[Rfam]
RNA: U7 small nuclear RNA
Organism: Theropithecus gelada
RNA sequence: UAGUGUUACAGCUCUUCUAAAAUUUGUUUAGCAGGCUUUCCAAUUUUUGCCAGAAAGCCCCC
Numbered sequence: 001u002a003g004u005g006u007u008a009c010a011g012c013u014c015u016u017c018u019a020a021a022a023u024u025u026g027u028u029u030a031g032c033a034g035g036c037u038u039u040c041c042a043a044u045u046u047u048u049g050c051c052a053g054a055a056a057g058c059c060c061c062c
Stems, first nucleotide, its partner, number of pairs: 034059007044049001